[Rfam]
RNA sequence: CUUCAAGCCAACUGUGCUCUUUCUCCAUGGGGGACCAGUGUGCCAUGGCUGCAAAGAGUAGCCUCCUUGGUGGUGUAUGCAGCCUGCUGACUGCAUGGGUUGCCCUAAGAGACCUUGGAGACAGCC
Numbered sequence: 001c002u003u004c005a006a007g008c009c010a011a012c013u014g015u016g017c018u019c020u021u022u023c024u025c026c027a028u029g030g031g032g033g034a035c036c037a038g039u040g041u042g043c044c045a046u047g048g049c050u051g052c053a054a055a056g057a058g059u060a061g062c063c064u065c066c067u068u069g070g071u072g073g074u075g076u077a078u079g080c081a082g083c084c085u086g087c088u089g090a091c092u093g094c095a096u097g098g099g100u101u102g103c104c105c106u107a108a109g110a111g112a113c114c115u116u117g118g119a120g121a122c123a124g125c126c
Stems, first nucleotide, its partner, number of pairs: 011039004017033004069114003080102006
A member of the RNA family "Small nucleolar RNA SNORA70" from Neomonachus schauinslandi, 126 nucleotides long.
A reference for the family is Charette and Gray (2000), "Pseudouridine in RNA: what, where, how, and why", IUBMB Life.
Its family is annotated with RNA processing and nucleolus in the Gene Ontology.
NCBI's taxonomy places the organism under Eukaryota, Teleostomi, Sarcopterygii, Monachinae, Neomonachus.
snoRNA U70 seems to be exclusive to mammals and is a member of the H/ACA class of snoRNA which contain H (ANANNA) and ACA box motifs. H/ACA box snoRNAs are involved in the conversion of uridines to pseudouridines (5-ribosyluracil) a constituent of structural RNAs (transfer, ribosomal, small nuclear, and small nucleolar).
It is annotated as an H/ACA-box small nucleolar RNA.
A search with the family's covariance model found it, with a score of 106 bits.